[Rfam]
The record is an 87-nucleotide sequence from Takifugu flavidus, which matches "mir-181 microRNA precursor family" in Rfam. The match comes from Rfam's covariance-model search (66 bits). Lineage of the source: Eukaryota > Bilateria > Chordata > Gnathostomata > Takifugu. Rfam links the family to the GO terms miRNA-mediated post-transcriptional gene silencing and RISC complex.

RNA sequence: GUGCCUCGGCAAACAUUCAACGCUGUCGGUGAGUUUUUGGUAUGGAUCCUAUAAAAACCAUCGACCGUUGACUGUGCCCCGCGGCUC
Numbered sequence: 001g002u003g004c005c006u007c008g009g010c011a012a013a014c015a016u017u018c019a020a021c022g023c024u025g026u027c028g029g030u031g032a033g034u035u036u037u038u039g040g041u042a043u044g045g046a047u048c049c050u051a052u053a054a055a056a057a058c059c060a061u062c063g064a065c066c067g068u069u070g071a072c073u074g075u076g077c078c079c080c081g082c083g084g085c086u087c
Stems, first nucleotide, its partner, number of pairs: 003086001004084002007081002014074002017071006025065007033058007